[Rfam]
Notes:
This 54-nucleotide sequence from Mola mola belongs to the Rfam family "Editing element of GABA-3 exon 9". A search with the family's covariance model found it, with a score of 72 bits. The literature on the family includes a 2007 paper in RNA by Ohlson et al., "Editing modifies the GABA(A) receptor subunit alpha3". Taxonomically the source falls in Mola (Eukaryota, Eumetazoa, Actinopterygii, Teleostei). Pairs were carried over by alignment from the consensus structure, which is taken from published work.

Nucleotides: 054
Base pairs, nucleotide, nucleotide: 001054002053003052007050008049010047011046013045014044016041017040019038020037022035023034024033025032026031
Number, partner (000 for none) and nucleotide at each position: 001054a002053a003052g004000g005000u006000c007050g008049c009000c010047u011046a012000u013045g014044c015000u016041a017040c018000u019038g020037c021000c022035a023034u024033g025032g026031a027000c028000u029000g030000g031026u032025u033024c034023a035022u036000c037020g038019c039000u040017g041016u042000c043000u044014g045013c046011u047010a048000u049008g050007c051000u052003u053002u054001u